[Rfam]
RNA sequence: UUAAGUUACUAGUGUUCCCGAUAGGAUUAGUUAUCCAAAAGAUCCUUGUAACCGAAAUUAAUUUAGGGGGAAUUUAUAUG
Numbered sequence: 001u002u003a004a005g006u007u008a009c010u011a012g013u014g015u016u017c018c019c020g021a022u023a024g025g026a027u028u029a030g031u032u033a034u035c036c037a038a039a040a041g042a043u044c045c046u047u048g049u050a051a052c053c054g055a056a057a058u059u060a061a062u063u064u065a066g067g068g069g070g071a072a073u074u075u076a077u078a079u080g
Stems, first nucleotide, its partner, number of pairs: 015072005023046003027040002031038001052067002
SAM-III riboswitch aptamer (SMK box): an 80-nucleotide sequence from Pediococcus stilesii. Taxonomically the source falls in Pediococcus (Bacteria, Bacillati, Bacillota, Lactobacillales). The base pairs follow the family's consensus structure, which is taken from published work.